[Rfam]
RNA sequence: UCCGACGGGAGGCGAUGACGCGCGGCCCACACUCUGGUCGCCUAGACCGCGCCGAGCCACUGGCGAGACCGACCCGCAUCCGA
Numbered sequence: 001u002c003c004g005a006c007g008g009g010a011g012g013c014g015a016u017g018a019c020g021c022g023c024g025g026c027c028c029a030c031a032c033u034c035u036g037g038u039c040g041c042c043u044a045g046a047c048c049g050c051g052c053c054g055a056g057c058c059a060c061u062g063g064c065g066a067g068a069c070c071g072a073c074c075c076g077c078a079u080c081c082g083a
Base pairs, nucleotide, nucleotide: 001083002082004080005079006076007075008074009073011058012057013056020052021051022050023049024048025047027045036070037069038066039065040064041063042062
RNA: c-di-GMP-II-GAG riboswitch aptamer